[Rfam]
RNA sequence: UCAUGAAGCAUUGCACCCGGGGUCUGGUCUACCAGACAUUGUACCUGGAGCUUGUGUUUUUUUUGUAAUUAAAAUU
Numbered sequence: 001u002c003a004u005g006a007a008g009c010a011u012u013g014c015a016c017c018c019g020g021g022g023u024c025u026g027g028u029c030u031a032c033c034a035g036a037c038a039u040u041g042u043a044c045c046u047g048g049a050g051c052u053u054g055u056g057u058u059u060u061u062u063u064u065g066u067a068a069u070u071a072a073a074a075u076u
Stems, first nucleotide, its partner, number of pairs: 006053004017048004022037005
Dot-bracket structure: .....((((.......((((.(((((......))))).......)))).)))).......................
Shown here is a 76-nucleotide RNA sequence from Dissostichus mawsoni, a member of the family "U1A polyadenylation inhibition element (PIE)". About the family: This family represents the U1A polyadenylation inhibition element (PIE). The family's RNA type in Rfam is cis-regulatory element. NCBI's taxonomy places the organism under Eukaryota, Bilateria, Acanthomorphata, Euacanthomorphacea, Dissostichus.